[Rfam]
RNA sequence: GAAAGAAGGGCAUCUGGUGGAUGCCUAGGCGCUGAGAGGCGAUGAAGGACGUGGUACGCUGCGAUAAGCGUCGGGGAGCUGCGAACAAGCUUUGAUCCGACGAUCUCCGAAUGGGGAAACCCACCUUCGACGGCUGAAGUUGCAAGUCCGGGAGCGAUCCCGGUCUUGGAUCUUCAGUUGUCACAUGAAGGUAUCUGCCCCUGAAUAAAAUAGGGGGUUAGAGGCGAACCCGGGGAACUGAAACAUCUAAGUACCCGGAGGAAAGGACAUCAACCGAGACUCCGCUAGUAGUGGCGAGCGAACGCGGACCAGGCCAGUGCCUCACAGUUUUUAACCGGAACCGUCUGGAAAGGCGGGCAUCAAUGGGUGAUAGCCCCGUACGGGUAAUGGAACUGCGAGGACUUGAGUAGGGCGGGACACGUGAAAUCCUGUCUGAACAUGGGGGGCCCACCCUCCAAGCCUAAGUACUCCUCAGCGACCGAUAGUGAACCAGUACCGUGAGGGAAAGGUGAAAAGCACCCCGACGAGGGGAGUGAAACAGUUCCUGAAACCGGAUGCCUACAAA
Numbered sequence: 001g002a003a004a005g006a007a008g009g010g011c012a013u014c015u016g017g018u019g020g021a022u023g024c025c026u027a028g029g030c031g032c033u034g035a036g037a038g039g040c041g042a043u044g045a046a047g048g049a050c051g052u053g054g055u056a057c058g059c060u061g062c063g064a065u066a067a068g069c070g071u072c073g074g075g076g077a078g079c080u081g082c083g084a085a086c087a088a089g090c091u092u093u094g095a096u097c098c099g100a101c102g103a104u105c106u107c108c109g110a111a112u113g114g115g116g117a118a119a120c121c122c123a124c125c126u127u128c129g130a131c132g133g134c135u136g137a138a139g140u141u142g143c144a145a146g147u148c149c150g151g152g153a154g155c156g157a158u159c160c161c162g163g164u165c166u167u168g169g170a171u172c173u174u175c176a177g178u179u180g181u182c183a184c185a186u187g188a189a190g191g192u193a194u195c196u197g198c199c200c201c202u203g204a205a206u207a208a209a210a211u212a213g214g215g216g217g218u219u220a221g222a223g224g225c226g227a228a229c230c231c232g233g234g235g236a237a238c239u240g241a242a243a244c245a246u247c248u249a250a251g252u253a254c255c256c257g258g259a260g261g262a263a264a265g266g267a268c269a270u271c272a273a274c275c276g277a278g279a280c281u282c283c284g285c286u287a288g289u290a291g292u293g294g295c296g297a298g299c300g301a302a303c304g305c306g307g308a309c310c311a312g313g314c315c316a317g318u319g320c321c322u323c324a325c326a327g328u329u330u331u332u333a334a335c336c337g338g339a340a341c342c343g344u345c346u347g348g349a350a351a352g353g354c355g356g357g358c359a360u361c362a363a364u365g366g367g368u369g370a371u372a373g374c375c376c377c378g379u380a381c382g383g384g385u386a387a388u389g390g391a392a393c394u395g396c397g398a399g400g401a402c403u404u405g406a407g408u409a410g411g412g413c414g415g416g417a418c419a420c421g422u423g424a425a426a427u428c429c430u431g432u433c434u435g436a437a438c439a440u441g442g443g444g445g446g447c448c449c450a451c452c453c454u455c456c457a458a459g460c461c462u463a464a465g466u467a468c469u470c471c472u473c474a475g476c477g478a479c480c481g482a483u484a485g486u487g488a489a490c491c492a493g494u495a496c497c498g499u500g501a502g503g504g505a506a507a508g509g510u511g512a513a514a515a516g517c518a519c520c521c522c523g524a525c526g527a528g529g530g531g532a533g534u535g536a537a538a539c540a541g542u543u544c545c546u547g548a549a550a551c552c553g554g555a556u557g558c559c560u561a562c563a564a565a
Base pairs, nucleotide, nucleotide: 008560009559010558011557012556013555014554015553016552017551023545024509025508028480029479030477031476032475033474034473035472036471037469038468039225040224047108048107049106050063051062052061069102070101071100072099073098074097075096078090079089080088113122114121115120123192124191125190126189127188128187129186194222195221196220197218198217199216200215201214202213229260230258231257232256233255234254240247241246270277271276280465281308282307283306284305285304291299292298311462312461313460314459321399322398323397325395326394327393328392329391330390331389335383336382337381341356342355343354344353345352365377366376367375410434411433412432413431414430415429416428417427441456442455443454444453445452496503497502519531520530521529522528
The record is a 565-nucleotide part of an RNA from Methylobrevis albus, which matches "Bacterial large subunit ribosomal RNA" in Rfam. It scores 2721 bits against the family's covariance model.